[Rfam]
RNA sequence: UAGUUGUUUUUACGAAAGAAGCGGAGUAAAGCUUGCCGUGAGAAGUCAGCAGACGCCAUAGUAGUGGAGUACUCGAUAGCGCUCCAUGAAGGGC
Numbered sequence: 001u002a003g004u005u006g007u008u009u010u011u012a013c014g015a016a017a018g019a020a021g022c023g024g025a026g027u028a029a030a031g032c033u034u035g036c037c038g039u040g041a042g043a044a045g046u047c048a049g050c051a052g053a054c055g056c057c058a059u060a061g062u063a064g065u066g067g068a069g070u071a072c073u074c075g076a077u078a079g080c081g082c083u084c085c086a087u088g089a090a091g092g093g094c
Base pairs, nucleotide, nucleotide: 001028002027004023007020008019009018010017011016045054046053047052055094056093057092064087065086066085067084068083069082
RNA: Group II catalytic intron D1-D4-1